[Rfam]
RNA: permuted transfer-messenger RNA
Organism: Roseovarius sp. TE539
RNA sequence: GGACAUAAACGCGCUCGAAAUAAGCGGAUCGGACCCGGGGGCGGUACCCGGCGGCUCCACCAGAAAUCCUUUCGUUGGAGGGUAUCAGGGGCCGAAACAGGAUCGACGAACGUGUAAAGGGGUUGCUUUGUCCCGGUGAGAUACCACCGUUAUCGGUUCAUCAAAGCAUAAUUGCCAACGACAAUCGUGCUCCGGCCCUCGCAGCAGCGUAA
Numbered sequence: 001g002g003a004c005a006u007a008a009a010c011g012c013g014c015u016c017g018a019a020a021u022a023a024g025c026g027g028a029u030c031g032g033a034c035c036c037g038g039g040g041g042c043g044g045u046a047c048c049c050g051g052c053g054g055c056u057c058c059a060c061c062a063g064a065a066a067u068c069c070u071u072u073c074g075u076u077g078g079a080g081g082g083u084a085u086c087a088g089g090g091g092c093c094g095a096a097a098c099a100g101g102a103u104c105g106a107c108g109a110a111c112g113u114g115u116a117a118a119g120g121g122g123u124u125g126c127u128u129u130g131u132c133c134c135g136g137u138g139a140g141a142u143a144c145c146a147c148c149g150u151u152a153u154c155g156g157u158u159c160a161u162c163a164a165a166g167c168a169u170a171a172u173u174g175c176c177a178a179c180g181a182c183a184a185u186c187g188u189g190c191u192c193c194g195g196c197c198c199u200c201g202c203a204g205c206a207g208c209g210u211a212a
Base pairs, nucleotide, nucleotide: 001133002132003131004130005129013123014122015121016120025112026111029109030108031107035051036050037049038048039047052094053093054092055091056090057089058088134149135148136147137146